[Rfam]
The family of this 102-nucleotide RNA from Sesamum indicum is "MIR396 microRNA precursor family". The family has 26 seed sequences and 744 matches in Rfam 15.1. The literature on the family includes a 2004 paper in Mol Cell by Jones-Rhoades and Bartel, "Computational identification of plant microRNAs and their targets, including a stress-induced miRNA". Its family is annotated with miRNA-mediated post-transcriptional gene silencing and RISC complex in the Gene Ontology. Lineage of the source: Eukaryota > Magnoliopsida > eudicotyledons > Gunneridae > Sesamum.
RNA sequence: UGUCAUGCUUUUCCACAGCUUUCUUGAACUUCUUAUGAGGUAAUAUUUCCAGGAUGAAUUUUGCACUCGGAAGUUCAAGAAAGCUGUGGGAAGACAUGGCAG
Numbered sequence: 001u002g003u004c005a006u007g008c009u010u011u012u013c014c015a016c017a018g019c020u021u022u023c024u025u026g027a028a029c030u031u032c033u034u035a036u037g038a039g040g041u042a043a044u045a046u047u048u049c050c051a052g053g054a055u056g057a058a059u060u061u062u063g064c065a066c067u068c069g070g071a072a073g074u075u076c077a078a079g080a081a082a083g084c085u086g087u088g089g090g091a092a093g094a095c096a097u098g099g100c101a102g
Base pairs, nucleotide, nucleotide: 003099004098005097006096007095013089014088015087017085018084019083020082021081022080024078025077026076027075029073030072031071032070033069